[Rfam]
RNA: hya RNA
RNA sequence: AGCGCCGCGCAAGUGGGCCGAAGGUCGACUCCUGCGGCGCAGGAGCGUGGGGCGCUCCGGAAAGUGGUCG
Numbered sequence: 001a002g003c004g005c006c007g008c009g010c011a012a013g014u015g016g017g018c019c020g021a022a023g024g025u026c027g028a029c030u031c032c033u034g035c036g037g038c039g040c041a042g043g044a045g046c047g048u049g050g051g052g053c054g055c056u057c058c059g060g061a062a063a064g065u066g067g068u069c070g
Stems, first nucleotide, its partner, number of pairs: 003039006042058006